About this RNA: The record is a 214-nucleotide RNA sequence from Phyllobacterium myrsinacearum, which matches "permuted transfer-messenger RNA" in Rfam. The organism belongs to Phyllobacterium, within Bacteria. It is annotated as a non-coding RNA gene. The base pairs follow the family's consensus structure, which is taken from published work. Bacterial tmRNA, also known as 10Sa RNA or SsrA, is named for its dual tRNA and mRNA-like properties.

RNA sequence: GGUGAUAAACGGACGAUACAAUAAGCCUAUUGGACCCGGGGGCGGUACCCGGCGCCUCCACCAGAGUGCAGUUGCAGGACUGCAUUGUGGCGGGGGCGAAAUAGGAUCGACAAGGGUGUAAAAAUCGCUCUUUUGCCCGGCAUAGUACCACCGUUAUCGGGCUAACUCAGUAGUUGCAAACGACAACUAUGCGGAAGCACGUCUCGCUGCUUAA
Numbered sequence: 001g002g003u004g005a006u007a008a009a010c011g012g013a014c015g016a017u018a019c020a021a022u023a024a025g026c027c028u029a030u031u032g033g034a035c036c037c038g039g040g041g042g043c044g045g046u047a048c049c050c051g052g053c054g055c056c057u058c059c060a061c062c063a064g065a066g067u068g069c070a071g072u073u074g075c076a077g078g079a080c081u082g083c084a085u086u087g088u089g090g091c092g093g094g095g096g097c098g099a100a101a102u103a104g105g106a107u108c109g110a111c112a113a114g115g116g117u118g119u120a121a122a123a124a125u126c127g128c129u130c131u132u133u134u135g136c137c138c139g140g141c142a143u144a145g146u147a148c149c150a151c152c153g154u155u156a157u158c159g160g161g162c163u164a165a166c167u168c169a170g171u172a173g174u175u176g177c178a179a180a181c182g183a184c185a186a187c188u189a190u191g192c193g194g195a196a197g198c199a200c201g202u203c204u205c206g207c208u209g210c211u212u213a214a
Stems, first nucleotide, its partner, number of pairs: 001137005014127004026116003030113003036052005053098007138153003